RNA: TD-1 RNA
RNA sequence: GUUUAUCUGCCGAGUUUGCCUUUCGGCAAACAUCGCAUUAUUGUAUGCGGUUUUGUAAACAAACCGCUUGAAAAAACUUUUUUCAGGAUUUGAUAAUCCUUGCAAAAAGUUUUUAUGGGA
Numbered sequence: 001g002u003u004u005a006u007c008u009g010c011c012g013a014g015u016u017u018g019c020c021u022u023u024c025g026g027c028a029a030a031c032a033u034c035g036c037a038u039u040a041u042u043g044u045a046u047g048c049g050g051u052u053u054u055g056u057a058a059a060c061a062a063a064c065c066g067c068u069u070g071a072a073a074a075a076a077c078u079u080u081u082u083u084c085a086g087g088a089u090u091u092g093a094u095a096a097u098c099c100u101u102g103c104a105a106a107a108a109g110u111u112u113u114u115a116u117g118g119g120a
Base pairs, nucleotide, nucleotide: 012034013033014031015030016029017028018027019026020025047067048066049065050064051063052062054061055060072114073113074112075111076110077109078108079107080106081105082104085100086099087098088097089096090095